[Rfam]
RNA sequence: GCCACCGCUCGCACCCCCUGCCAGCGCCUGGCGCUGGUCCCGAUCGCUUGGCGCUGUCAGUGGGUGUGAGCGGCGGCUG
Numbered sequence: 001g002c003c004a005c006c007g008c009u010c011g012c013a014c015c016c017c018c019u020g021c022c023a024g025c026g027c028c029u030g031g032c033g034c035u036g037g038u039c040c041c042g043a044u045c046g047c048u049u050g051g052c053g054c055u056g057u058c059a060g061u062g063g064g065u066g067u068g069a070g071c072g073g074c075g076g077c078u079g
Stems, first nucleotide, its partner, number of pairs: 005073012018060003022056007
Dot-bracket structure: ....((((((((((((.(((.(((((((.....................))))))).))).))))))))))))......
A member of the RNA family "mir-9198 microRNA precursor family" from Cnephaeus nilssonii, 79 nucleotides long.
Rfam links the family to the GO terms RISC complex and miRNA-mediated post-transcriptional gene silencing.
Rfam 15.1 lists 64 matches to the family in 7 species.
The source organism's lineage runs through Eukaryota, Vertebrata, Teleostomi, Theria and Cnephaeus.